Background:
Rfam assigns this 264-nucleotide sequence from an Anaerolineae bacterium to the family "Bacterial large signal recognition particle RNA". Pairs were carried over by alignment from the consensus structure, which is taken from published work. Lineage of the source: Bacteria > Bacillati > Chloroflexota > Anaerolineae. Rfam classes the family as a non-coding RNA gene. About the family: The signal recognition particle (SRP) is a universally conserved ribonucleoprotein involved in the co-translational targeting of proteins to membranes. It scores 180 bits against the family's covariance model. Its family is annotated with SRP-dependent cotranslational protein targeting to membrane, signal sequence recognition and signal recognition particle, plasma membrane targeting in the Gene Ontology.
[Rfam]
Nucleotides: 264
Base pairs, nucleotide, nucleotide: 001264002263003262004261005260006259009058010057011056012030013029014028015027016026017025018024019023034055035054036053037052039050064257065256066255067254068253069252072248073247074246075245076244077243081241082240083239084238085237086236087235088234093230094229095227096226097225099223100222104219105218107215108214115210116209117208118207119206120205121204122203123199124198125197126196127195128194129190133187134186135185136184137182139180140179141178142177148173149172150171151170156165157164158163
Number, partner (000 for none) and nucleotide at each position: 001264u002263c003262g004261u005260g006259c007000u008000a009058g010057a011056c012030g013029g014028g015027g016026c017025g018024c019023u020000a021000g022000c023019g024018g025017u026016g027015c028014c029013c030012u031000g032000c033000a034055c035054c036053c037052g038000a039050a040000a041000u042000c043000c044000g045000c046000u047000a048000c049000a050039u051000g052037c053036g054035g055034g056011g057010u058009c059000g060000a061000a062000u063000u064257c065256c066255c067254u068253u069252c070000c071000g072248a073247g074246g075245g076244u077243u078000c079000g080000u081241u082240u083239g084238c085237c086236c087235g088234g089000a090000g091000a092000c093230u094229g095227u096226g097225g098000g099223g100222c101000g102000g103000a104219g105218c106000g107215g108214c109000g110000u111000u112000g113000a114000u115210g116209g117208u118207u119206g120205g121204g122203u123199c124198c125197u126196g127195u128194g129190c130000g131000g132000c133187g134186g135185g136184g137182g138000c139180c140179u141178g142177u143000g144000a145000a146000c147000c148173g149172u150171g151170u152000c153000a154000g155000g156165a157164c158163c159000g160000a161000g162000a163158g164157g165156u166000a167000g168000c169000a170151g171150c172149a173148c174000u175000a176000a177142g178141c179140a180139g181000u182137u183000u184136c185135c186134u187133c188000a189000g190129g191000u192000g193000c194128c195127a196126c197125g198124g199123g200000g201000u202000c203122g204121c205120c206119u207118g208117g209116c210115c211000u212000g213000a214108g215107c216000a217000a218105g219104c220000u221000g222100g223099u224000a225097c226096c227095a228000g229094c230093a231000a232000g233000c234088c235087c236086g237085g238084g239083u240082a241081a242000c243077a244076a245075u246074u247073c248072u249000g250000a251000a252069g253068a254067a255066g256065g257064g258000u259006g260005c261004a262003c263002g264001a